[Rfam]
Y RNA: a 102-nucleotide RNA from Peromyscus maniculatus.
RNA sequence: GGUUGGUUCAAGGGUAGUGGUGUUUACAACUAAUUGAUCACAACCAAUUACAGAUUUCUUUGUUCCUUCUCCACUCCCACUACUUCACUUGAACAGCCAUCC
Numbered sequence: 001g002g003u004u005g006g007u008u009c010a011a012g013g014g015u016a017g018u019g020g021u022g023u024u025u026a027c028a029a030c031u032a033a034u035u036g037a038u039c040a041c042a043a044c045c046a047a048u049u050a051c052a053g054a055u056u057u058c059u060u061u062g063u064u065c066c067u068u069c070u071c072c073a074c075u076c077c078c079a080c081u082a083c084u085u086c087a088c089u090u091g092a093a094c095a096g097c098c099a100u101c102c
Stems, first nucleotide, its partner, number of pairs: 001098005007092002010090002014086001016081005022076001028064003032060002
It is annotated as a non-coding RNA gene. A reference for the family is Teunissen et al. (2000), "Conserved features of Y RNAs: a comparison of experimentally derived secondary structures", Nucleic Acids Res. Y RNAs are components of the Ro ribonucleoprotein particle (Ro RNP), in association with Ro60 and La proteins. The Y RNAs and Ro60 and La proteins are well conserved, but the function of the Ro RNP is not known. Pairs were carried over by alignment from the consensus structure, which is taken from published work.